[Rfam]
Annotation: Shown here is a 78-nucleotide RNA from Vombatus ursinus, a member of the family "mir-132 microRNA precursor family". Its family is annotated with RISC complex and miRNA-mediated post-transcriptional gene silencing in the Gene Ontology. For this family Rfam cites "The developmental miRNA profiles of zebrafish as determined by small RNA cloning" (Chen et al., Genes Dev, 2005).
RNA sequence: CUGCGGGGCGACCAUGGCUGUAGACUGUUACUCCCGGUUCCCACAGUAACAAUCGAAAGCCACGGUUGCCCUGGAGAC
Number, nucleotide and partner (000 for none) at each position: 001c000002u000003g000004c000005g000006g000007g000008g000009c000010g000011a000012c065013c064014a000015u062016g061017g060018c059019u000020g000021u000022a000023g054024a053025c000026u051027g050028u049029u048030a047031c046032u045033c000034c000035c000036g000037g000038u000039u000040c000041c000042c000043a000044c000045a032046g031047u030048a029049a028050c027051a026052a000053u024054c023055g000056a000057a000058a000059g018060c017061c016062a015063c000064g013065g012066u000067u000068g000069c000070c000071c000072u000073g000074g000075a000076g000077a000078c000